[Rfam]
RNA sequence: CUACCUACCGUAAGUUACGGUGUCAUGGGCCCUCGAUACACUCUCAAACUGCGGGAAAGUCCUGAGAGCCUUUGAUACCGCGGCCUCCGGGAAACCGAGGUGCAGCAGGCGAUGUAGCGGUCGUCGGAUGGUAAAAACUCAAACAAUUGGGCAAUCCGCAGCCAAGUCCCUUCUUGUCAGGCCAACCCCGCGCAUGGCUCCUACUCGGUACGACUACCUCCUUGGUUGGCUGCCUUGGACUGACUUUGUGUUCCGACGAGAGUUUUAGUGACCAGUGGUUACGGCAAAUGGCCACUACUCUCGACGUCGACCCACUUCUGUCAGCACUGCAGCUGGCCCGGUAGUCCUCCGUCGCCACUACCCAGUGGUGUCCUGAGAAAUGGGAAAGGUUCAGAGACUAAACGGGAGUGGGGAUUUCCCUGUGUGCUGGUAGGCAUAUUAGAAGGGAAAUCUUUAAGAUAUAGUCCGGCCCCCGCGAAAGGCGGGC
Number, nucleotide and partner (000 for none) at each position: 001c000002u000003a000004c000005c000006u000007a015008c014009c000010g000011u000012a000013a000014g008015u007016u000017a000018c000019g000020g000021u000022g000023u000024c000025a000026u000027g000028g000029g000030c000031c000032c000033u000034c000035g000036a000037u000038a000039c410040a409041c408042u407043c406044u000045c404046a000047a000048a000049c000050u160051g159052c158053g157054g156055g155056a000057a000058a000059g000060u151061c150062c149063u000064g147065a000066g000067a000068g000069c000070c000071u000072u000073u000074g000075a000076u000077a000078c000079c000080g000081c000082g000083g000084c000085c000086u000087c000088c000089g000090g000091g000092a000093a000094a000095c000096c000097g000098a000099g000100g000101u000102g000103c000104a000105g000106c000107a000108g000109g000110c000111g000112a000113u000114g000115u000116a000117g000118c000119g000120g000121u000122c000123g000124u000125c000126g000127g000128a000129u000130g000131g000132u000133a000134a000135a000136a000137a000138c000139u000140c000141a000142a000143a000144c000145a000146a000147u064148u000149g062150g061151g060152c000153a000154a000155u055156c054157c053158g052159c051160a050161g390162c389163c000164a000165a000166g000167u384168c383169c382170c000171u000172u000173c000174u378175u376176g000177u000178c000179a000180g000181g000182c000183c000184a000185a000186c000187c000188c000189c000190g000191c000192g000193c000194a000195u000196g000197g000198c000199u000200c000201c000202u000203a000204c000205u000206c000207g000208g000209u000210a000211c000212g000213a000214c000215u000216a000217c000218c000219u000220c000221c000222u000223u000224g000225g000226u000227u000228g000229g000230c000231u000232g000233c000234c000235u000236u000237g000238g000239a000240c000241u000242g000243a000244c000245u000246u000247u000248g000249u000250g000251u000252u000253c000254c000255g000256a000257c000258g000259a000260g000261a000262g000263u000264u000265u000266u000267a000268g000269u000270g000271a000272c000273c000274a000275g000276u000277g000278g000279u000280u000281a000282c000283g000284g000285c000286a000287a000288a000289u000290g000291g000292c000293c000294a000295c000296u000297a000298c000299u000300c000301u000302c000303g000304a000305c000306g000307u000308c000309g000310a000311c000312c000313c000314a000315c000316u000317u000318c000319u000320g000321u000322c000323a000324g000325c000326a000327c000328u000329g000330c000331a000332g000333c000334u000335g000336g000337c000338c000339c000340g000341g000342u000343a000344g000345u000346c000347c000348u000349c000350c000351g000352u000353c000354g000355c000356c000357a000358c000359u000360a000361c000362c000363c000364a000365g000366u000367g000368g000369u000370g000371u000372c000373c000374u000375g000376a175377g000378a174379a000380a000381u000382g169383g168384g167385a000386a000387a000388g000389g162390u161391u000392c000393a000394g467395a000396g466397a465398c464399u463400a462401a000402a000403c000404g045405g000406g043407a042408g041409u040410g039411g000412g453413g452414a451415u450416u449417u448418c447419c446420c445421u000422g000423u000424g000425u000426g000427c000428u000429g000430g000431u000432a000433g000434g000435c000436a000437u000438a000439u000440u000441a000442g000443a000444a000445g420446g419447g418448a417449a416450a415451u414452c413453u412454u000455u000456a000457a000458g000459a000460u000461a000462u400463a399464g398465u397466c396467c394468g000469g000470c000471c000472c000473c485474c484475g483476c481477g000478a000479a000480a000481g476482g000483c475484g474485g473486g000487c000